Overview: The family of this 104-nucleotide RNA sequence from Alteromonas sp. KUL49 is "Vibrio RNA AS9". The family's consensus secondary structure was predicted with RNAfold. The organism belongs to Alteromonas, within Bacteria. A search with the family's covariance model found it, with a score of 62 bits. The family's RNA type in Rfam is antisense RNA. Identified by direct cloning an parallel sequencing experiments with 5S/tRNA depletion. Confirmed by Northern blot.
[Rfam]
RNA sequence: CCGUUCACAGCGCUCUCUCGUCAUUGGUAAACACACGAGUCCGCGAGCGUGAGUCACCAUGAAAUUUAUCGCUUCGGGCGUGACGUGCUCCGCCGCCAUAAUGA
Dot-bracket structure: ..(.(.(((.((.(........).)).)......(((..((...)).)))..)).).).......((((.((..((((((.....))).)))..))....))))